[Rfam]
RNA sequence: AGUUUUCGCCGCGGCUUCUCCUCCCAAUAGCCGCUGCGAAUAGAACCUGCGAACUCCUCCCCCCAAAAUCGCAGGUUUCCAAACGACCCCCGCCGGUCCUCCCCCGGCGGGUGUUGUCG
Numbered sequence: 001a002g003u004u005u006u007c008g009c010c011g012c013g014g015c016u017u018c019u020c021c022u023c024c025c026a027a028u029a030g031c032c033g034c035u036g037c038g039a040a041u042a043g044a045a046c047c048u049g050c051g052a053a054c055u056c057c058u059c060c061c062c063c064c065a066a067a068a069u070c071g072c073a074g075g076u077u078u079c080c081a082a083a084c085g086a087c088c089c090c091c092g093c094c095g096g097u098c099c100u101c102c103c104c105c106g107g108c109g110g111g112u113g114u115u116g117u118c119g
Base pairs, nucleotide, nucleotide: 007038008037009036011034012033013032014031015030016029043078044077045076046075047074048073049072050071051070052069086114087113089111090110091109092108093107094106095105096104
Alphaproteobacterial ar14: a 119-nucleotide RNA from Aureimonas altamirensis. The pairing is the family consensus, mapped onto this sequence. A search with the family's covariance model found it, with a score of 76 bits. Gene Ontology term of the family: biological process involved in symbiotic interaction. Rfam 15.1 lists 784 matches to the family in 332 species. On this family, see del Val et al., RNA Biol 2012: "A survey of sRNA families in alpha-proteobacteria". The organism belongs to Aureimonas, within Bacteria. Rfam classes the family as a small RNA.